[Rfam]
RNA sequence: GUCAGUGUCGUCUAGUGGUUAGGACGCGAGCUUCACACGCUCGAGAUCGAGGGUUUGAUCCCCUCCUCUGAUA
Numbered sequence: 001g002u003c004a005g006u007g008u009c010g011u012c013u014a015g016u017g018g019u020u021a022g023g024a025c026g027c028g029a030g031c032u033u034c035a036c037a038c039g040c041u042c043g044a045g046a047u048c049g050a051g052g053g054u055u056u057g058a059u060c061c062c063c064u065c066c067u068c069u070g071a072u073a
Base pairs, nucleotide, nucleotide: 001072002071003070004069005068007066010025011024012023013022027043028042029041030040031039049065050064051063052062053061
Rfam assigns this 73-nucleotide sequence from Nothophytophthora sp. Chile5 to the family "tRNA". Rfam links the family to the GO term triplet codon-amino acid adaptor activity. The family's RNA type in Rfam is transfer RNA.